[Rfam]
RNA sequence: AUACUCUGGUUUCUCUUCAAAACAAAUAAAUCUUUCACCUUUUCCUGAAGAUUUCCAUGGAGAGGACCAGUUAUGAGUUGACGACCAAAUUUUUUGAGGUCUUGCUCAGGCAAGGCU
Numbered sequence: 001a002u003a004c005u006c007u008g009g010u011u012u013c014u015c016u017u018c019a020a021a022a023c024a025a026a027u028a029a030a031u032c033u034u035u036c037a038c039c040u041u042u043u044c045c046u047g048a049a050g051a052u053u054u055c056c057a058u059g060g061a062g063a064g065g066a067c068c069a070g071u072u073a074u075g076a077g078u079u080g081a082c083g084a085c086c087a088a089a090u091u092u093u094u095u096g097a098g099g100u101c102u103u104g105c106u107c108a109g110g111c112a113a114g115g116c117u
Base pairs, nucleotide, nucleotide: 003078004077005076006075009068011066012065013064014063015062016061017060018059019058028054029053030052031051032050033049034048035047097117099116100115101114102113103112104111
Rfam assigns this 117-nucleotide sequence from Prolemur simus to the family "U5 spliceosomal RNA". Pairs were carried over by alignment from the consensus structure, which is taken from published work. By type it is a spliceosomal small nuclear RNA. Gene Ontology terms of the family: spliceosomal tri-snRNP complex assembly and U5 snRNP. It scores 78 bits against the family's covariance model. The organism belongs to Prolemur, within Eukaryota.